[Rfam]
RNA: Purine riboswitch aptamer
Organism: Treponema sp. J25
RNA sequence: ACAGACCAUAAGCCGUCGGUUCAUAUAUACCCCGUAAUACGGUCGGGGCGUUUCUACCAGGGAGCCGUAAACUUCCUGACUAUGGACCAGACGAAGUACUUU
Numbered sequence: 001a002c003a004g005a006c007c008a009u010a011a012g013c014c015g016u017c018g019g020u021u022c023a024u025a026u027a028u029a030c031c032c033c034g035u036a037a038u039a040c041g042g043u044c045g046g047g048g049c050g051u052u053u054c055u056a057c058c059a060g061g062g063a064g065c066c067g068u069a070a071a072c073u074u075c076c077u078g079a080c081u082a083u084g085g086a087c088c089a090g091a092c093g094a095a096g097u098a099c100u101u102u
Base pairs, nucleotide, nucleotide: 018088019087020086021085022084023083024082025081030048031047032046033045034044058078059077060076061075062074063073064072